[Rfam]
RNA: t44 RNA
RNA sequence: UAAUCAUUAAUACAAAAUCACACACAUAUCAAAAACUAAUUAUCGGGGUGCUUGCGAGAAGAUAUUUCUCAAUGGUCGGUUAUUAGGGUAUGUGGAGGCAAAAC
Numbered sequence: 001u002a003a004u005c006a007u008u009a010a011u012a013c014a015a016a017a018u019c020a021c022a023c024a025c026a027u028a029u030c031a032a033a034a035a036c037u038a039a040u041u042a043u044c045g046g047g048g049u050g051c052u053u054g055c056g057a058g059a060a061g062a063u064a065u066u067u068c069u070c071a072a073u074g075g076u077c078g079g080u081u082a083u084u085a086g087g088g089u090a091u092g093u094g095g096a097g098g099c100a101a102a103a104c
Stems, first nucleotide, its partner, number of pairs: 023094008037085004042080004050076003